[Rfam]
RNA sequence: CAAUGCUUCAGCGUAAAAGGAAUGCGCAGGUGAUUUGAGAGAAGCGCCCUCGGGUGAUCACAAACCAAAGUCAUAAGGAAAGAAGCGUGGUCUGAGACUGACGCUUUCGAGCGACCACAGCCAAUGCGACCAUAACCUGAAAGGACGCGCUUUCGAGCGGUAACCCC
Numbered sequence: 001c002a003a004u005g006c007u008u009c010a011g012c013g014u015a016a017a018a019g020g021a022a023u024g025c026g027c028a029g030g031u032g033a034u035u036u037g038a039g040a041g042a043a044g045c046g047c048c049c050u051c052g053g054g055u056g057a058u059c060a061c062a063a064a065c066c067a068a069a070g071u072c073a074u075a076a077g078g079a080a081a082g083a084a085g086c087g088u089g090g091u092c093u094g095a096g097a098c099u100g101a102c103g104c105u106u107u108c109g110a111g112c113g114a115c116c117a118c119a120g121c122c123a124a125u126g127c128g129a130c131c132a133u134a135a136c137c138u139g140a141a142a143g144g145a146c147g148c149g150c151u152u153u154c155g156a157g158c159g160g161u162a163a164c165c166c167c
Stems, first nucleotide, its partner, number of pairs: 003014004024045002030061006046055003084099002087118006103112003130143001133163001135161003149158003
Overview: The record is a 167-nucleotide RNA sequence from Chania multitudinisentens, which matches "STAXI RNA" in Rfam. The base pairs follow the family's consensus structure, which is taken from published work.